[Rfam]
RNA sequence: GAGAGCUGUGUGAGAACCGCAGUCCCCGAAAGUCUAAGGUUUCCGACGGGAGGUCAAUCCGCGUCGGGUUAGUCGGACCUAAGAUGAGGCCGAAAGGCGUAGUCGAUGGAUAACAGGUGAAUAUUCCUGUACCGCAUCAGGUUGUCUGAGCGAAGGGGUGACGCAGAAGGGUAGAUCAGCCAGCGGCUGGAAGAGCUGGUGCCAAGCCUGUAGGUGAUGAGGACGGGGCGAAAAGACCGUCUGAGCUGAGGGGUGAAGGCGAGCCUAAAUUAGGUGGAAGUGAUUGAACCCAAGCUGACGAGAAAAGCCUCUAGUGAGACCUAUGCGACCGUACCGCAAACCGACACAGGUAGACAGGUGGAGAACACCAAGGGGAA
Numbered sequence: 001g002a003g004a005g006c007u008g009u010g011u012g013a014g015a016a017c018c019g020c021a022g023u024c025c026c027c028g029a030a031a032g033u034c035u036a037a038g039g040u041u042u043c044c045g046a047c048g049g050g051a052g053g054u055c056a057a058u059c060c061g062c063g064u065c066g067g068g069u070u071a072g073u074c075g076g077a078c079c080u081a082a083g084a085u086g087a088g089g090c091c092g093a094a095a096g097g098c099g100u101a102g103u104c105g106a107u108g109g110a111u112a113a114c115a116g117g118u119g120a121a122u123a124u125u126c127c128u129g130u131a132c133c134g135c136a137u138c139a140g141g142u143u144g145u146c147u148g149a150g151c152g153a154a155g156g157g158g159u160g161a162c163g164c165a166g167a168a169g170g171g172u173a174g175a176u177c178a179g180c181c182a183g184c185g186g187c188u189g190g191a192a193g194a195g196c197u198g199g200u201g202c203c204a205a206g207c208c209u210g211u212a213g214g215u216g217a218u219g220a221g222g223a224c225g226g227g228g229c230g231a232a233a234a235g236a237c238c239g240u241c242u243g244a245g246c247u248g249a250g251g252g253g254u255g256a257a258g259g260c261g262a263g264c265c266u267a268a269a270u271u272a273g274g275u276g277g278a279a280g281u282g283a284u285u286g287a288a289c290c291c292a293a294g295c296u297g298a299c300g301a302g303a304a305a306a307g308c309c310u311c312u313a314g315u316g317a318g319a320c321c322u323a324u325g326c327g328a329c330c331g332u333a334c335c336g337c338a339a340a341c342c343g344a345c346a347c348a349g350g351u352a353g354a355c356a357g358g359u360g361g362a363g364a365a366c367a368c369c370a371a372g373g374g375g376a377a
Base pairs, nucleotide, nucleotide: 005023006022007021008020009019010018024375025374026373027372032355033354034353035352038335039334043067044066045065046064047063048062052060053059074331075330076329078109079108083104084103085102087100089098090097091096113130114129115128116127117126133327134326135325136324137323139322140321141320142319143318150315151314154312155311156310157309158308159307164297165296166295169291170290171289174285175284176283177282178281179200180199181198182197183196184195202259203258206254207253208252209251213247214246215245221242222241223240224239225238226237229235265274266273341350342349357369358368359367360366
This 377-nucleotide part of an RNA from uncultured Chloroflexi bacterium 1i19 belongs to the Rfam family "Bacterial large subunit ribosomal RNA". Pairs were carried over by alignment from the consensus structure, which is taken from published work.